RNA sequence: CGAGGAAACUCUGGAGAACUCAUUGAAUUGAGUGCCGAAGGUGCAAGGCCAUGGUGGUCGAAUCUCUCAGGCAAAGGGACAGAGAAGCAGGA
Numbered sequence: 001c002g003a004g005g006a007a008a009c010u011c012u013g014g015a016g017a018a019c020u021c022a023u024u025g026a027a028u029u030g031a032g033u034g035c036c037g038a039a040g041g042u043g044c045a046a047g048g049c050c051a052u053g054g055u056g057g058u059c060g061a062a063u064c065u066c067u068c069a070g071g072c073a074a075a076g077g078g079a080c081a082g083a084g085a086a087g088c089a090g091g092a
Stems, first nucleotide, its partner, number of pairs: 009084005019032004034072003037068002041066001043064001047059002
Rfam assigns this 92-nucleotide RNA from Ruminococcaceae bacterium AF10-16 to the family "Glycine riboswitch aptamer".